[Rfam]
RNA sequence: UCAGAGGAUCGGGCGAUCGCCGCUGCGAAAGCAGGGGAGGAAAGUCCGGGCUCCACGGAACGCGGUGCCGGGUAACACCCGGCGGGGGCGACCCCAGGGACAGUGCCACAGAGAGCAGACCGCCGAUGGGUUCCGGCAACGGAACGACAGGCAAGGGUGAAAGGGUGCGGUAACAGCGCACCGCGCGAUGGGUAACCGGAGCGGCAUGGCAAACCCCACCGGGAGCAAGACCGAAUAGGGACGGCAUGUGGCGCAAGCCACAGGGCAGGAACCGGCCUCGCCGUCCGGGUUGGUUGCUUGAGGUUGUCGGUAACGGCAAUCCUAGAGGAAUGAUCGUCGCUGGCGUUCGCGCCAGUACAGAACCCGGCUUACAGAUCCUCUGACCGC
Numbered sequence: 001u002c003a004g005a006g007g008a009u010c011g012g013g014c015g016a017u018c019g020c021c022g023c024u025g026c027g028a029a030a031g032c033a034g035g036g037g038a039g040g041a042a043a044g045u046c047c048g049g050g051c052u053c054c055a056c057g058g059a060a061c062g063c064g065g066u067g068c069c070g071g072g073u074a075a076c077a078c079c080c081g082g083c084g085g086g087g088g089c090g091a092c093c094c095c096a097g098g099g100a101c102a103g104u105g106c107c108a109c110a111g112a113g114a115g116c117a118g119a120c121c122g123c124c125g126a127u128g129g130g131u132u133c134c135g136g137c138a139a140c141g142g143a144a145c146g147a148c149a150g151g152c153a154a155g156g157g158u159g160a161a162a163g164g165g166u167g168c169g170g171u172a173a174c175a176g177c178g179c180a181c182c183g184c185g186c187g188a189u190g191g192g193u194a195a196c197c198g199g200a201g202c203g204g205c206a207u208g209g210c211a212a213a214c215c216c217c218a219c220c221g222g223g224a225g226c227a228a229g230a231c232c233g234a235a236u237a238g239g240g241a242c243g244g245c246a247u248g249u250g251g252c253g254c255a256a257g258c259c260a261c262a263g264g265g266c267a268g269g270a271a272c273c274g275g276c277c278u279c280g281c282c283g284u285c286c287g288g289g290u291u292g293g294u295u296g297c298u299u300g301a302g303g304u305u306g307u308c309g310g311u312a313a314c315g316g317c318a319a320u321c322c323u324a325g326a327g328g329a330a331u332g333a334u335c336g337u338c339g340c341u342g343g344c345g346u347u348c349g350c351g352c353c354a355g356u357a358c359a360g361a362a363c364c365c366g367g368c369u370u371a372c373a374g375a376u377c378c379u380c381u382g383a384c385c386g387c
Stems, first nucleotide, its partner, number of pairs: 001383010011372001012338007020037002023034004042370003046367005051225004058272001061269001063221005068082005083097001084095004098216002103214002105210003120156002122152003127147001129145001164182006183205001184203003189198003229295004239286006264278002302321008

The family of this 387-nucleotide sequence from Alphaproteobacteria bacterium PA4 is "Bacterial RNase P class A". NCBI's taxonomy places the organism under Bacteria, Pseudomonadati, Pseudomonadota, Alphaproteobacteria. A search with the family's covariance model found it, with a score of 295 bits.